Rfam assigns this 120-nucleotide sequence to the family "DUF3268 RNA".
The base pairs follow the family's consensus structure, which is taken from published work.
RNA sequence: GGAAAGGGAACGCACCCAGGCUUUCGAUCCUUCGGAAGAGCUCCCGGAGGCAGACGCAUCCACGCGGGAUGCGGAAUCGUUACGGGCCUUGCGCAUUGAGCUGGUCCACAAUGGUGCUCC
Numbered sequence: 001g002g003a004a005a006g007g008g009a010a011c012g013c014a015c016c017c018a019g020g021c022u023u024u025c026g027a028u029c030c031u032u033c034g035g036a037a038g039a040g041c042u043c044c045c046g047g048a049g050g051c052a053g054a055c056g057c058a059u060c061c062a063c064g065c066g067g068g069a070u071g072c073g074g075a076a077u078c079g080u081u082a083c084g085g086g087c088c089u090u091g092c093g094c095a096u097u098g099a100g101c102u103g104g105u106c107c108a109c110a111a112u113g114g115u116g117c118u119c120c
Stems, first nucleotide, its partner, number of pairs: 007120003012117005025079004029050007055073007084107003089103001091101002

The sequence is in the family's curated seed alignment.